EFASI RNA: a 151-nucleotide sequence from Duffyella gerundensis.
[Rfam]
RNA sequence: UCGACUCGGUAUCGAUGGCGACAUCAGGAAACUGGUGUACGGAGGCAGACUGACUAACGUCAGCACGGCGCAAGCCGCAAACAGGUCAGAGACUUGGGGAAGCCUCGCAAGAACUCAACAUUUCGCCGCCCCGAUGCACAGAUACCAGUUG
Numbered sequence: 001u002c003g004a005c006u007c008g009g010u011a012u013c014g015a016u017g018g019c020g021a022c023a024u025c026a027g028g029a030a031a032c033u034g035g036u037g038u039a040c041g042g043a044g045g046c047a048g049a050c051u052g053a054c055u056a057a058c059g060u061c062a063g064c065a066c067g068g069c070g071c072a073a074g075c076c077g078c079a080a081a082c083a084g085g086u087c088a089g090a091g092a093c094u095u096g097g098g099g100a101a102g103c104c105u106c107g108c109a110a111g112a113a114c115u116c117a118a119c120a121u122u123u124c125g126c127c128g129c130c131c132c133g134a135u136g137c138a139c140a141g142a143u144a145c146c147a148g149u150u151g
Base pairs, nucleotide, nucleotide: 002151003150004149005148008146009145010144011143012142013141019041020040021038022037023036024035025034026033027032042106043105044104045103050063051062052061053060054059082099083095084094085093086092087091